[Rfam]
RNA sequence: CGCAGACCGCCGCCUAAUCGCCGCGAGGCGAGCCGGGGAACCACUUGAGUAGUGGGGUGAAUCGGAUCCGCGCACCCGCGCGGAUCGGUAGGGAUCACUUCCGUCCCGAACCCGUCAGCUAACCCGGUCGGCGGCCGACGGAAGGAACG
Number, nucleotide and partner (000 for none) at each position: 001c000002g000003c000004a000005g000006a000007c000008c000009g000010c000011c133012g132013c131014c130015u000016a000017a000018u031019c030020g029021c028022c027023g000024c000025g000026a000027g022028g021029c020030g019031a018032g128033c127034c126035g125036g124037g123038g000039a000040a000041c000042c054043a053044c000045u000046u000047g000048a000049g000050u000051a000052g000053u043054g042055g113056g112057g111058u000059g000060a000061a000062u000063c088064g000065g086066a085067u084068c083069c082070g081071c080072g079073c078074a000075c000076c000077c000078g073079c072080g071081c070082g069083g068084a067085u066086c065087g000088g063089u000090a000091g107092g106093g105094a104095u000096c000097a000098c000099u000100u000101c000102c000103g000104u094105c093106c092107c091108g000109a000110a000111c057112c056113c055114g000115u000116c000117a000118g000119c000120u000121a000122a000123c037124c036125c035126g034127g033128u032129c000130g014131g013132c012133g011134g000135c000136c000137g000138a000139c000140g000141g000142a000143a000144g000145g000146a000147a000148c000149g000

Rfam assigns this 149-nucleotide RNA from Actinoplanes nipponensis to the family "c-di-AMP riboswitch aptamer (ydaO/yuaA leader)". The source organism's lineage runs through Bacteria, Bacillati, Actinomycetota, Micromonosporaceae and Actinoplanes.